[Rfam]
RNA sequence: AAAUGAGGUAGAGGUCGCAAGCAUUAAGAGUAGUUUAGUGGAGAUUGAGAAAAUCUGUGAAGCUAAUAUGAAAGGAAUGAUUGCCGAAGUGUCAUUUUGAUUCUCAAAAAAUGAUGCUGGGGCUGUCUCCGAAAGGAACAGAACUGUCACAUGUUAAAGCAUGUGUUGAGCUAUCUUUCAA
Numbered sequence: 001a002a003a004u005g006a007g008g009u010a011g012a013g014g015u016c017g018c019a020a021g022c023a024u025u026a027a028g029a030g031u032a033g034u035u036u037a038g039u040g041g042a043g044a045u046u047g048a049g050a051a052a053a054u055c056u057g058u059g060a061a062g063c064u065a066a067u068a069u070g071a072a073a074g075g076a077a078u079g080a081u082u083g084c085c086g087a088a089g090u091g092u093c094a095u096u097u098u099g100a101u102u103c104u105c106a107a108a109a110a111a112u113g114a115u116g117c118u119g120g121g122g123c124u125g126u127c128u129c130c131g132a133a134a135g136g137a138a139c140a141g142a143a144c145u146g147u148c149a150c151a152u153g154u155u156a157a158a159g160c161a162u163g164u165g166u167u168g169a170g171c172u173a174u175c176u177u178u179c180a181a
Stems, first nucleotide, its partner, number of pairs: 006176006017084004022079004033069002035066005088118011119145002123141004128136002148165006
RNA: Lysine riboswitch aptamer